[Rfam]
RNA sequence: GGAUGUAGAGGGCGAUCUGGCUGAGACAUCUGUCACCCCAUUGAUCGCCAGGGUUGUUGAUUGGGCUGAUCUGGCUGGCUAGGCGGGUGUCCCCUCCUCCCUCACCGAUCCAGGUGCGUCCCUCCCAAAGCUGCAAACUCGGUGGAAGAGGACGACCUCCCCCCGAGGAGAGGACGGGUCUUGGUCAAGGGUAUACGAGUAGCUGCGCUCCCCGGCUAGAACCUCCAAACAAGCUCUCAAGGUCCCUUUGUAGGGGAACUAGGGUAGUCAAGCUUCCAAGACAACAGACACAUCCAAAUGAGGCGCUGCCCGUGGCAGUCUGCCUUUCUUU
Number, nucleotide and partner (000 for none) at each position: 001g111002g110003a109004u000005g105006u104007a000008g103009a102010g101011g100012g099013c000014g096015a095016u000017c000018u000019g094020g093021c000022u000023g000024a000025g091026a090027c089028a088029u087030c086031u085032g084033u083034c082035a000036c078037c077038c074039c073040a072041u000042u000043g071044a070045u069046c068047g066048c065049c064050a000051g000052g000053g000054u000055u000056g000057u000058u000059g000060a000061u000062u000063g000064g049065g048066c047067u000068g046069a045070u044071c043072u040073g039074g038075c000076u000077g037078g036079c000080u000081a000082g034083g033084c032085g031086g030087g029088u028089g027090u026091c025092c000093c020094c019095u015096c014097c000098u000099c012100c011101c010102u009103c008104a006105c005106c000107g000108a000109u003110c002111c001112a000113g000114g000115u000116g000117c000118g000119u171120c170121c168122c167123u166124c165125c142126c141127a000128a139129a000130g138131c000132u000133g000134c000135a000136a000137a000138c130139u128140c000141g126142g125143u000144g163145g162146a000147a000148g000149a000150g160151g159152a158153c000154g000155a000156c000157c000158u152159c151160c150161c000162c145163c144164c000165g124166a123167g122168g121169a000170g120171a119172g000173g000174a000175c000176g000177g000178g000179u000180c000181u000182u000183g000184g000185u000186c000187a000188a000189g000190g000191g000192u000193a000194u000195a000196c000197g000198a000199g000200u000201a000202g273203c272204u271205g000206c000207g000208c267209u266210c000211c264212c263213c262214g000215g260216c000217u000218a000219g000220a000221a000222c000223c256224u255225c254226c253227a000228a000229a251230c250231a249232a248233g247234c000235u000236c000237u000238c000239a000240a000241g000242g000243u000244c000245c000246c000247u233248u232249u231250g230251u229252a000253g226254g225255g224256g223257a000258a000259c000260u215261a000262g213263g212264g211265u000266a209267g208268u000269c000270a000271a204272g203273c202274u000275u000276c000277c000278a000279a000280g000281a000282c000283a000284a000285c000286a000287g000288a000289c000290a000291c000292a000293u000294c000295c000296a331297a330298a329299u000300g326301a325302g324303g323304c322305g319306c318307u317308g316309c315310c000311c000312g000313u000314g000315g309316c308317a307318g306319u305320c000321u000322g304323c303324c302325u301326u300327u000328c000329u298330u297331u296
RNA: 7SK RNA